This 110-nucleotide RNA from Kurthia sibirica belongs to the Rfam family "Guanidine-I riboswitch aptamer". Taxonomically the source falls in Kurthia (Bacteria, Bacillati, Bacillota, Caryophanaceae). A reference for the family is Trachman RJ 3rd and Ferre-D'Amare (2021), "An uncommon [K(+)(Mg(2+))2] metal ion triad imparts stability and selectivity to the Guanidine-I riboswitch", RNA. The pairing is the family consensus, mapped onto this sequence.
[Rfam]
RNA sequence: UACGAGAAUUUCUAGGGUUCCGAAAAACAUGCUUGUUUUUGUCUGGUCCAAGAGAAAUUCCAUAUCUAGCUUAUUUGGAUAUGUCACGGAAGGAUAAAAGCCUGGGAGAU
Numbered sequence: 001u002a003c004g005a006g007a008a009u010u011u012c013u014a015g016g017g018u019u020c021c022g023a024a025a026a027a028c029a030u031g032c033u034u035g036u037u038u039u040u041g042u043c044u045g046g047u048c049c050a051a052g053a054g055a056a057a058u059u060c061c062a063u064a065u066c067u068a069g070c071u072u073a074u075u076u077g078g079a080u081a082u083g084u085c086a087c088g089g090a091a092g093g094a095u096a097a098a099a100g101c102c103u104g105g106g107a108g109a110u
Stems, first nucleotide, its partner, number of pairs: 007059006015049002020046002022043001023040006061083008085105001087108001091103003